[Rfam]
RNA: FMN riboswitch aptamer (RFN element)
Organism: Thalassolituus maritimus
RNA sequence: AACCAUUCUCGGGGCGGGGUGCAAUUCCCCACCGGCGGUAUAGCCCGCGAGCGCCUGUUAAACAGGGUCAGCAGAUCUGGUGAAACUCCAGAGCCGACGGUCACAGUCCGGAUAUGAGAGAGAGACG
Numbered sequence: 001a002a003c004c005a006u007u008c009u010c011g012g013g014g015c016g017g018g019g020u021g022c023a024a025u026u027c028c029c030c031a032c033c034g035g036c037g038g039u040a041u042a043g044c045c046c047g048c049g050a051g052c053g054c055c056u057g058u059u060a061a062a063c064a065g066g067g068u069c070a071g072c073a074g075a076u077c078u079g080g081u082g083a084a085a086c087u088c089c090a091g092a093g094c095c096g097a098c099g100g101u102c103a104c105a106g107u108c109c110g111g112a113u114a115u116g117a118g119a120g121a122g123a124g125a126c127g
Stems, first nucleotide, its partner, number of pairs: 004124001006122005017029003031107002033096002035048004043094002051072002076092005098110003